[Rfam]
RNA: Potassium channel RNA editing signal
Organism: Labeo rohita
RNA sequence: CUCGGCUAUGGCGAUAUGUACCCUCAGACGACGUCCGGCAUGCUGGUGGGCGCACUGUGUGCCCUGGCAGGUGUGCUGACGAUUGCCAUGCCUGUACCUGUAAUCGUGAACAAC
Numbered sequence: 001c002u003c004g005g006c007u008a009u010g011g012c013g014a015u016a017u018g019u020a021c022c023c024u025c026a027g028a029c030g031a032c033g034u035c036c037g038g039c040a041u042g043c044u045g046g047u048g049g050g051c052g053c054a055c056u057g058u059g060u061g062c063c064c065u066g067g068c069a070g071g072u073g074u075g076c077u078g079a080c081g082a083u084u085g086c087c088a089u090g091c092c093u094g095u096a097c098c099u100g101u102a103a104u105c106g107u108g109a110a111c112a113a114c
Stems, first nucleotide, its partner, number of pairs: 002113001004111001007108005014101003018097004037077004049063003
Dot-bracket structure: .(.(..(((((..(((.((((...............((((........(((.........)))..........))))................)))).)))..)))))..).).